RNA sequence: CUCAGCCGGGGGUCUUGUUAAAACACAGAUUCUAAUCCUGUAGGUCUGGGGUGGGGCCUGAGAUUCUGCAUUUCUAACAAGCUCCCAGCUGGUGUUCA
Numbered sequence: 001c002u003c004a005g006c007c008g009g010g011g012g013u014c015u016u017g018u019u020a021a022a023a024c025a026c027a028g029a030u031u032c033u034a035a036u037c038c039u040g041u042a043g044g045u046c047u048g049g050g051g052u053g054g055g056g057c058c059u060g061a062g063a064u065u066c067u068g069c070a071u072u073u074c075u076a077a078c079a080a081g082c083u084c085c086c087a088g089c090u091g092g093u094g095u096u097c098a
Stems, first nucleotide, its partner, number of pairs: 003091003009085003014081007021073003026068004031063003
A member of the RNA family "mir-544 microRNA precursor family" from Prolemur simus, 98 nucleotides long. The family's consensus secondary structure was predicted with RNAalifold. The family has 16 seed sequences and 10,750 matches in Rfam 15.1. A search with the family's covariance model found it, with a score of 67 bits. Taxonomically the source falls in Prolemur (Eukaryota, Eumetazoa, Dipnotetrapodomorpha, Boreoeutheria).